[Rfam]
RNA sequence: GCUAUCAGCUUCUAGGGUUCCGACUUGAAAUGAAGGCUUCAUUGCUGGGAAUGAAGUGCUUCGUGCAAGUGUCUGGUCCGAGAGAAGCAGCUUGCUGAGUCCUCAGUAAGCUACACGGCGGGAAAAAAGCCCGGGAGGA
Numbered sequence: 001g002c003u004a005u006c007a008g009c010u011u012c013u014a015g016g017g018u019u020c021c022g023a024c025u026u027g028a029a030a031u032g033a034a035g036g037c038u039u040c041a042u043u044g045c046u047g048g049g050a051a052u053g054a055a056g057u058g059c060u061u062c063g064u065g066c067a068a069g070u071g072u073c074u075g076g077u078c079c080g081a082g083a084g085a086a087g088c089a090g091c092u093u094g095c096u097g098a099g100u101c102c103u104c105a106g107u108a109a110g111c112u113a114c115a116c117g118g119c120g121g122g123a124a125a126a127a128a129g130c131c132c133g134g135g136a137g138g139a
Base pairs, nucleotide, nucleotide: 008088009087010086011085012084015079016078020076021075022073023070024069025068026067027066090112091110092109093108094107095106096105097104114134116137120132121131122130